[Rfam]
RNA: Small nucleolar RNA SNORD63
Organism: Carlito syrichta
RNA sequence: GUGCAAUGAUGCAUUUUAUUCACAAACACAUCAUUCUGAGAGAACGUGUGGAAACUCAUGACUGAGCACA
Numbered sequence: 001g002u003g004c005a006a007u008g009a010u011g012c013a014u015u016u017u018a019u020u021c022a023c024a025a026a027c028a029c030a031u032c033a034u035u036c037u038g039a040g041a042g043a044a045c046g047u048g049u050g051g052a053a054a055c056u057c058a059u060g061a062c063u064g065a066g067c068a069c070a
Stems, first nucleotide, its partner, number of pairs: 001069004